[Rfam]
RNA sequence: ACCAUUGUUUUCUUGGAGUUGUGUGCUGUUCCAUGAGCGCACAGUGAGGGCAGUGCUGCUAACACCUACGUAACCUGCUUACAUCAACUAGAGCUUUGCGUUAUAUUGGUACAAUUUUUGGAAAA
Numbered sequence: 001a002c003c004a005u006u007g008u009u010u011u012c013u014u015g016g017a018g019u020u021g022u023g024u025g026c027u028g029u030u031c032c033a034u035g036a037g038c039g040c041a042c043a044g045u046g047a048g049g050g051c052a053g054u055g056c057u058g059c060u061a062a063c064a065c066c067u068a069c070g071u072a073a074c075c076u077g078c079u080u081a082c083a084u085c086a087a088c089u090a091g092a093g094c095u096u097u098g099c100g101u102u103a104u105a106u107u108g109g110u111a112c113a114a115u116u117u118u119u120g121g122a123a124a125a
Base pairs, nucleotide, nucleotide: 006018008016009015021059022058023057025054026053027052028051029050030049031048037045038044083110084109085108086107089103090102091101093099094098

U4atac minor spliceosomal RNA: a 125-nucleotide RNA from Otolemur garnettii. U4atac is an essential component of the minor U12-type spliceosome complex which is required for removal of the rarer class of eukaryotic introns (AT-AC, U12-type). Rfam 15.1 lists 1,648 matches to the family in 818 species. It scores 73 bits against the family's covariance model. Rfam links the family to the GO terms pre-mRNA 5'-splice site binding, mRNA 5'-splice site recognition and spliceosomal tri-snRNP complex assembly. Lineage of the source: Eukaryota > Amniota > Boreoeutheria > Euarchontoglires > Otolemur. A reference for the family is Lorkovic et al. (2005), "Evolutionary conservation of minor U12-type spliceosome between plants and humans", RNA.